[Rfam]
RNA sequence: CCUACAUAAGUUGUCUUAUUUUAUGUGGACAAAGACUUAUGGAGAGGUACAAAAAUAAAUCCUCUUUUGCAACACAGAACUCAUUAUACAGUAUGAGUUUUGAUACAUCUAAGAAGAAAUAUG
Numbered sequence: 001c002c003u004a005c006a007u008a009a010g011u012u013g014u015c016u017u018a019u020u021u022u023a024u025g026u027g028g029a030c031a032a033a034g035a036c037u038u039a040u041g042g043a044g045a046g047g048u049a050c051a052a053a054a055a056u057a058a059a060u061c062c063u064c065u066u067u068u069g070c071a072a073c074a075c076a077g078a079a080c081u082c083a084u085u086a087u088a089c090a091g092u093a094u095g096a097g098u099u100u101u102g103a104u105a106c107a108u109c110u111a112a113g114a115a116g117a118a119a120u121a122u123g
Stems, first nucleotide, its partner, number of pairs: 001047003007041001010036003014032001017029001022027001059120002063116001065114005075102010

Source information
Rfam assigns this 123-nucleotide RNA from Castor canadensis to the family "Small nucleolar RNA SNORA40". Pairs were carried over by alignment from the consensus structure, which was predicted with RNAalifold. Rfam classes the family as an H/ACA-box small nucleolar RNA. A reference for the family is Ofengand and Bakin (1997), "Mapping to nucleotide resolution of pseudouridine residues in large subunit ribosomal RNAs from representative eukaryotes, prokaryotes, archaebacteria, mitochondria and chloroplasts", J Mol Biol. The match comes from Rfam's covariance-model search (80 bits). The snoRNA ACA 40 belongs to the H/ACA family of snoRNAs and guides the pseudouridylation of 28S rRNA subunit at position U4565. NB This family has a high threshold value to exclude a large number of closely related sequences that do not appear to have conserved H and ACA boxes, and may be pseudogenes. Rfam links the family to the GO terms nucleolus and RNA processing.